[Rfam]
RNA: Bacterial large signal recognition particle RNA
RNA sequence: CCGUGCUAGGUGGGGAGGUAGCGGUGCCCUGUAACUUGCAAUCCGCUAUAGCAAGGCUGAAUUCCCAUUUGAGGUGAGGCGAUUUUAUGGUCUGCCUUAACGGAGUGGUGUUGACGUUUAGAUCCUGCGCAACAGGAACCCAUGAACCCUGUCAGGUCCGGAAGGAAGCAGCAGUAAGUGGUUAUUCUUGUGUGCCGUGGGGCCUCCUAAGCCGAGCCAUGAACUUAAGUAACGCAUAGGGACGUCGCAUCGAUAGUGGGUGCAUGG
Numbered sequence: 001c002c003g004u005g006c007u008a009g010g011u012g013g014g015g016a017g018g019u020a021g022c023g024g025u026g027c028c029c030u031g032u033a034a035c036u037u038g039c040a041a042u043c044c045g046c047u048a049u050a051g052c053a054a055g056g057c058u059g060a061a062u063u064c065c066c067a068u069u070u071g072a073g074g075u076g077a078g079g080c081g082a083u084u085u086u087a088u089g090g091u092c093u094g095c096c097u098u099a100a101c102g103g104a105g106u107g108g109u110g111u112u113g114a115c116g117u118u119u120a121g122a123u124c125c126u127g128c129g130c131a132a133c134a135g136g137a138a139c140c141c142a143u144g145a146a147c148c149c150u151g152u153c154a155g156g157u158c159c160g161g162a163a164g165g166a167a168g169c170a171g172c173a174g175u176a177a178g179u180g181g182u183u184a185u186u187c188u189u190g191u192g193u194g195c196c197g198u199g200g201g202g203c204c205u206c207c208u209a210a211g212c213c214g215a216g217c218c219a220u221g222a223a224c225u226u227a228a229g230u231a232a233c234g235c236a237u238a239g240g241g242a243c244g245u246c247g248c249a250u251c252g253a254u255a256g257u258g259g260g261u262g263c264a265u266g267g
Stems, first nucleotide, its partner, number of pairs: 001267006009058003012030004017025001019023001035055005064260006073251004080244002083241007093231002097228004107218003116212006124201006130192002133190005138183001140181004149174004157166003